[Rfam]
RNA sequence: GAUAGGCCUUUGUACCGCGCACAUCACUUAGAUGGGCCCCGGAAAGCAACGUAGGAA
Numbered sequence: 001g002a003u004a005g006g007c008c009u010u011u012g013u014a015c016c017g018c019g020c021a022c023a024u025c026a027c028u029u030a031g032a033u034g035g036g037c038c039c040c041g042g043a044a045a046g047c048a049a050c051g052u053a054g055g056a057a
Base pairs, nucleotide, nucleotide: 019037020036022034023033024032025031
Rfam assigns this 57-nucleotide RNA from Camellia sinensis to the family "Plastid-ndhJ 3UTR RNA". By type it is a cis-regulatory element. The family has 50 seed sequences and 869 matches in Rfam 15.1. Taxonomically the source falls in Camellia (Eukaryota, Gunneridae, Pentapetalae, asterids).